[Rfam]
RNA sequence: AACGUUCAUCCUGCUUUGAAUUGCGGAGGCUAAGCGAUUAGUUUAAGCAUCUCUCGCAGGACGGAAAUAGGGAAUCUCCCGAAGGAACGCGCC
Number, nucleotide and partner (000 for none) at each position: 001a000002a000003c089004g088005u087006u086007c085008a000009u061010c060011c059012u058013g057014c000015u000016u000017u000018g000019a000020a000021u000022u000023g000024c000025g000026g000027a000028g000029g000030c000031u000032a000033a000034g000035c000036g000037a000038u000039u000040a000041g000042u000043u000044u000045a000046a000047g000048c000049a000050u000051c000052u000053c000054u000055c000056g000057c013058a012059g011060g010061a009062c000063g000064g090065a000066a000067a000068u000069a000070g080071g079072g078073a000074a000075u000076c000077u000078c072079c071080c070081g000082a000083a000084g000085g007086a006087a005088c004089g003090c064091g000092c000093c000
RNA: Glutamine riboswitch aptamer (glnA leader)
Organism: Pegethrix bostrychoides